[Rfam]
Nucleotides: 173
Base pairs, nucleotide, nucleotide: 013160014159017156018155019154020153023150024149025148026147027146028145029144030143031142032141034139035138036137037136038135040133041132
Number, partner (000 for none) and nucleotide at each position: 001000g002000u003000u004000g005000c006000g007000g008000c009000g010000g011000c012000c013160u014159c015000u016000a017156g018155u019154u020153c021000g022000c023150u024149u025148g026147g027146u028145g029144c030143a031142g032141g033000u034139c035138g036137g037136g038135a039000a040133c041132u042000u043000u044000u045000u046000u047000c048000g049000c050000c051000g052000a053000c054000u055000u056000c057000g058000u059000u060000g061000c062000a063000u064000u065000u066000u067000g068000u069000g070000u071000u072000a073000a074000a075000u076000u077000u078000g079000g080000g081000c082000c083000a084000a085000u086000c087000g088000u089000g090000g091000c092000g093000a094000g095000u096000a097000u098000a099000a100000c101000u102000u103000u104000c105000g106000a107000u108000u109000g110000c111000c112000g113000c114000u115000g116000u117000a118000u119000u120000u121000g122000g123000c124000g125000a126000a127000a128000a129000u130000c131000a132041g133040g134000u135038u136037c137036c138035u139034g140000c141032c142031u143030u144029g145028c146027a147026u148025c149024a150023a151000c152000u153020g154019a155018a156017u157000c158000a159014g160013a161000g162000g163000c164000c165000g166000c167000g168000g169000u170000g171000a172000a173000u
The family of this 173-nucleotide sequence from Salvia splendens is "MIR168 microRNA precursor family". Rfam 15.1 lists 518 matches to the family in 218 species. The organism belongs to core Calosphace, within Eukaryota. The match comes from Rfam's covariance-model search (96 bits).